[Rfam]
RNA: Mycobacterium sRNA Ms_AS-1
Organism: Mycolicibacterium insubricum
RNA sequence: ACCGGGUUCGGGAUGAAGUGGUUGACCACGCCGCCGAACACCGCCAGGGUGCGCUUGCCGUCGGCCACCAUCUGCACGCCGCGGCUGCGGAACUCUUU
Number, nucleotide and partner (000 for none) at each position: 001a000002c000003c000004g000005g000006g039007u038008u037009c036010g035011g034012g000013a000014u033015g032016a000017a000018g029019u028020g027021g026022u000023u000024g000025a000026c021027c020028a019029c018030g000031c000032c015033g014034c011035c010036g009037a008038a007039c006040a000041c000042c000043g054044c053045c000046a000047g000048g000049g000050u000051g000052c000053g044054c043055u000056u000057g000058c000059c000060g000061u000062c000063g000064g000065c000066c000067a000068c000069c000070a000071u000072c000073u000074g000075c000076a000077c000078g000079c090080c089081g088082c087083g000084g000085c000086u000087g082088c081089g080090g079091a000092a000093c000094u000095c000096u000097u000098u000